Overview:
This 31-nucleotide sequence belongs to the Rfam family "L31-Coriobacteria ribosomal protein leader". The family has 75 seed sequences and 105 matches in Rfam 15.1. The sequence is in the family's curated seed alignment. The literature on the family includes a 2020 paper in BMC Microbiol by Eckert and Weinberg, "Discovery of 20 novel ribosomal leader candidates in bacteria and archaea".

RNA sequence: ACCUUGGUCGGAAACCAAGGCGGAAUAGGAG
Numbered sequence: 001a002c003c004u005u006g007g008u009c010g011g012a013a014a015c016c017a018a019g020g021c022g023g024a025a026u027a028g029g030a031g
Base pairs, nucleotide, nucleotide: 002020003019004018005017006016007015008014